Overview: Rfam assigns this 114-nucleotide sequence to the family "c-di-GMP-II-GAG riboswitch aptamer". On this family, see Weinberg et al., Proc Natl Acad Sci U S A 2017: "Bioinformatic analysis of riboswitch structures uncovers variant classes with altered ligand specificity". The family's consensus secondary structure is taken from published work. Gene Ontology terms of the family: regulation of gene expression and cyclic-di-GMP binding.
[Rfam]
Nucleotides: 114
Base pairs, nucleotide, nucleotide: 001114002113003112006109007107009105010104011103013088014087015086022082023081024080025079026078027077036100037099038096039095040094041093042092
Number, partner (000 for none) and nucleotide at each position: 001114c002113g003112u004000a005000a006109c007107g008000a009105g010104c011103g012000c013088g014087g015086c016000u017000g018000u019000g020000a021000c022082u023081u024080c025079g026078g027077g028000a029000c030000g031000a032000a033000a034000u035000c036100g037099g038096u039095c040094a041093c042092c043000a044000c045000g046000c047000c048000u049000u050000c051000g052000c053000g054000g055000c056000u057000c058000u059000u060000g061000a062000g063000u064000c065000u066000g067000c068000g069000a070000g071000g072000c073000g074000u075000c076000a077027c078026c079025c080024g081023a082022a083000g084000u085000a086015g087014c088013c089000a090000a091000u092042g093041g094040u095039g096038a097000g098000a099037c100036c101000g102000g103011c104010g105009c106000c107007c108000g109006g110000g111000a112003a113002c114001g